Notes
The family of this 57-nucleotide RNA from Handroanthus impetiginosus is "Plastid-rps18 3UTR RNA". About the family: Plastid rps18 is a non-coding RNA (ncRNA) present in plastids. It was identified as a short stem-loop motif in the 3 prime untranslate region (3UTR) of rps18 gene. The base pairs follow the family's consensus structure, which was predicted with LocARNA. The source organism's lineage runs through Eukaryota, Spermatophyta, eudicotyledons, Lamiales and Handroanthus. Rfam classes the family as a cis-regulatory element. It scores 68 bits against the family's covariance model.
RNA sequence: GGCUUGUAUCUUACGACUAAGAAGCAAUUGUCUCUUGUAUAGAUCAUGUAUUAAUUU
Numbered sequence: 001g002g003c004u005u006g007u008a009u010c011u012u013a014c015g016a017c018u019a020a021g022a023a024g025c026a027a028u029u030g031u032c033u034c035u036u037g038u039a040u041a042g043a044u045c046a047u048g049u050a051u052u053a054a055u056u057u
Base pairs, nucleotide, nucleotide: 018037019036020035021034022033024031025030